This 90-nucleotide sequence from endosymbiont of unidentified scaly snail isolate Monju belongs to the Rfam family "t44 RNA". This family consists of a number of bacterial RNA genes of between 135 and 170 bases in length. The t44 gene has been identified in several species of enteric bacteria but homologs have also been identified in Pseudomonas and Coxiella species. The t44 gene is found between the map and rpsB genes in all species in the full alignment apart from Shigella flexneri. The function of this RNA is unknown. It is annotated as a small RNA. The base pairs follow the family's consensus structure, which was predicted with LocARNA. Taxonomically the source falls in Gammaproteobacteria (Bacteria, Pseudomonadati, Pseudomonadota).

RNA sequence: CCGGGUGUCGCCGAAAUACACACACGCACUGCAACCAUCUCGGUCUGGGUGCCCGCAAGGGUGGGCCGGUGGGGUGCGUGGAGGCUCAAC
Dot-bracket structure: ......................((((((((.....(((..((((((....((((....))))))))))))).))))))))..........